[Rfam]
RNA sequence: UACCUUUGCAACCGAAUUGGGAACGACCCAAUCUACAUAAUAAUUAUUUAAAUAAAUAUUAGCAUG
Numbered sequence: 001u002a003c004c005u006u007u008g009c010a011a012c013c014g015a016a017u018u019g020g021g022a023a024c025g026a027c028c029c030a031a032u033c034u035a036c037a038u039a040a041u042a043a044u045u046a047u048u049u050a051a052a053u054a055a056a057u058a059u060u061a062g063c064a065u066g
Stems, first nucleotide, its partner, number of pairs: 016032006